Shown here is an 89-nucleotide RNA from Zhihengliuella flava, a member of the family "ZMP/ZTP riboswitch aptamer (pfl RNA motif)". A reference for the family is Jones and Ferre-D'Amare (2015), "Recognition of the bacterial alarmone ZMP through long-distance association of two RNA subdomains", Nat Struct Mol Biol. The family's consensus secondary structure is taken from published work. Gene Ontology terms of the family: regulation of purine nucleotide biosynthetic process and one-carbon metabolic process. A search with the family's covariance model found it, with a score of 55 bits.
[Rfam]
RNA sequence: UAGGACUGCCGCAACUGGCGUGAGGUGGAGCACCACCGGGGAGCGGCACGCAUGCAGACCUGUUAGGACCGCGCGCCUGGGCCCAGGGU
Numbered sequence: 001u002a003g004g005a006c007u008g009c010c011g012c013a014a015c016u017g018g019c020g021u022g023a024g025g026u027g028g029a030g031c032a033c034c035a036c037c038g039g040g041g042a043g044c045g046g047c048a049c050g051c052a053u054g055c056a057g058a059c060c061u062g063u064u065a066g067g068a069c070c071g072c073g074c075g076c077c078u079g080g081g082c083c084c085a086g087g088g089u
Stems, first nucleotide, its partner, number of pairs: 004051001007048006015040002017077005025036004066084002069081002